Record summary:
A member of the RNA family "azaaromatic riboswitch aptamer (yjdF RNA)" from Chloroflexia bacterium SDU3-3, 103 nucleotides long. The base pairs follow the family's consensus structure, which is taken from published work. The match comes from Rfam's covariance-model search (86 bits).

RNA sequence: UUCCUUGCGCGUAAAAACACGGUCCGGUUGGUAGUCCGGGCGCAGCCGCUGGGGCUGUCAGUAACCUGCCCUCCCUGGGUUGUCCGGCGCGCAUGUGCGUCAA
Numbered sequence: 001u002u003c004c005u006u007g008c009g010c011g012u013a014a015a016a017a018c019a020c021g022g023u024c025c026g027g028u029u030g031g032u033a034g035u036c037c038g039g040g041c042g043c044a045g046c047c048g049c050u051g052g053g054g055c056u057g058u059c060a061g062u063a064a065c066c067u068g069c070c071c072u073c074c075c076u077g078g079g080u081u082g083u084c085c086g087g088c089g090c091g092c093a094u095g096u097g098c099g100u101c102a103a
Stems, first nucleotide, its partner, number of pairs: 004095001006093006022041006042058006068080004